[Rfam]
RNA sequence: GUUGGCCUGUGUGUUGAUGGUGUUCAGCACCAGGGACAGGUCUGUUGGCCAGUGUGUGAAUGGUGUUCAGCACCAAGGACAGGUCUAUUGGCCA
Numbered sequence: 001g002u003u004g005g006c007c008u009g010u011g012u013g014u015u016g017a018u019g020g021u022g023u024u025c026a027g028c029a030c031c032a033g034g035g036a037c038a039g040g041u042c043u044g045u046u047g048g049c050c051a052g053u054g055u056g057u058g059a060a061u062g063g064u065g066u067u068c069a070g071c072a073c074c075a076a077g078g079a080c081a082g083g084u085c086u087a088u089u090g091g092c093c094a
Base pairs, nucleotide, nucleotide: 004085005084006083007082008081009080010079018075019074020073021072022071023070024069026067027066028065029064030063031062032061034055036053037052039050040049041048042047
Dot-bracket structure: ...(((((((.......(((((((.(((((((.(.((.((((....)))).)).).....))))))).)))))))...))))))).........

The record is a 94-nucleotide sequence from Branchiostoma lanceolatum, which matches "mir-2060 microRNA precursor family" in Rfam. The base pairs follow the family's consensus structure, which was predicted with RNAalifold. Gene Ontology terms of the family: RISC complex and miRNA-mediated post-transcriptional gene silencing. NCBI's taxonomy places the organism under Eukaryota, Opisthokonta, Deuterostomia, Branchiostomatidae, Branchiostoma.